[Rfam]
This 141-nucleotide RNA from Etheostoma spectabile belongs to the Rfam family "Small nucleolar RNA SNORA15". From the family's description: ACA15 is a member of the H/ACA class of snoRNA that guide the sites of modification of uridines to pseudouridines. Lineage of the source: Eukaryota > Teleostomi > Actinopterygii > Euacanthomorphacea > Oligocephalus. It scores 62 bits against the family's covariance model. The family's RNA type in Rfam is H/ACA-box small nucleolar RNA.
RNA sequence: GCAUGGCCGAAUUCUGUUUUACUCUUGAAAUAGUAAAUGCAGUCAGACACCAUGCUAAAUUAUUUUUUUCACACACUGACUCAACAGGAUAAGAAUGCUAAUGAUGUGCCUUCUUUAUCUUAUGUCUGAGUGAAUACAGAA
Numbered sequence: 001g002c003a004u005g006g007c008c009g010a011a012u013u014c015u016g017u018u019u020u021a022c023u024c025u026u027g028a029a030a031u032a033g034u035a036a037a038u039g040c041a042g043u044c045a046g047a048c049a050c051c052a053u054g055c056u057a058a059a060u061u062a063u064u065u066u067u068u069u070c071a072c073a074c075a076c077u078g079a080c081u082c083a084a085c086a087g088g089a090u091a092a093g094a095a096u097g098c099u100a101a102u103g104a105u106g107u108g109c110c111u112u113c114u115u116u117a118u119c120u121u122a123u124g125u126c127u128g129a130g131u132g133a134a135u136a137c138a139g140a141a
Base pairs, nucleotide, nucleotide: 001055002054003053004052005051006050014042015041016040017039019037065134066133067132068130069129070128071127073125074124084123086121087120088119089118090117091116092115093114